[Rfam]
RNA sequence: AAGCAAGUUUUCUAAGUGUCUAAUGAUGAUUUUCAUAGGGCAGAUUCUGAGGUGAAAAGUUAAUUCAUCACUGAUACUUCUACUAUGGAAUCUGAAGACACACAAAAACCU
Numbered sequence: 001a002a003g004c005a006a007g008u009u010u011u012c013u014a015a016g017u018g019u020c021u022a023a024u025g026a027u028g029a030u031u032u033u034c035a036u037a038g039g040g041c042a043g044a045u046u047c048u049g050a051g052g053u054g055a056a057a058a059g060u061u062a063a064u065u066c067a068u069c070a071c072u073g074a075u076a077c078u079u080c081u082a083c084u085a086u087g088g089a090a091u092c093u094g095a096a097g098a099c100a101c102a103c104a105a106a107a108a109c110c111u
Stems, first nucleotide, its partner, number of pairs: 013104001016101006031090006037081004043075001046074002049071001051069006
Shown here is a 111-nucleotide sequence from Chrysochloris asiatica, a member of the family "Small nucleolar RNA SNORD90". snoRNA HBII-295 belongs to the family of C/D snoRNAs. Gene Ontology terms of the family: nucleolus and RNA processing. By type it is a C/D-box small nucleolar RNA. The match comes from Rfam's covariance-model search (117 bits). On this family, see Huttenhofer et al., EMBO J 2001: "RNomics: an experimental approach that identifies 201 candidates for novel, small, non-messenger RNAs in mouse".